[Rfam]
RNA sequence: GUCGGAUAUGGAGACAUGGCACCAAAGACAUUCUAUGGAAUGUUUGUUGGUGCAUUAUGUGCUAUUGCUGGUGUACUGACUAUUGCAUUGCCUGUACCCGUCAUCGUUAGUAAU
Number, nucleotide and partner (000 for none) at each position: 001g114002u113003c000004g111005g000006a000007u000008a107009u106010g105011g104012a000013g102014a101015c100016a000017u000018g097019g000020c000021a095022c094023c000024a000025a000026a000027g000028a000029c000030a000031u000032u000033c000034u000035a000036u000037g077038g076039a000040a074041u000042g000043u000044u000045u000046g000047u000048u000049g063050g062051u061052g000053c000054a000055u000056u000057a000058u000059g000060u000061g051062c050063u049064a000065u000066u000067g000068c000069u000070g000071g000072u000073g000074u040075a000076c038077u037078g000079a000080c000081u000082a000083u000084u000085g000086c000087a000088u000089u000090g000091c000092c000093u000094g022095u021096a000097c018098c000099c000100g015101u014102c013103a000104u011105c010106g009107u008108u000109a000110g000111u004112a000113a002114u001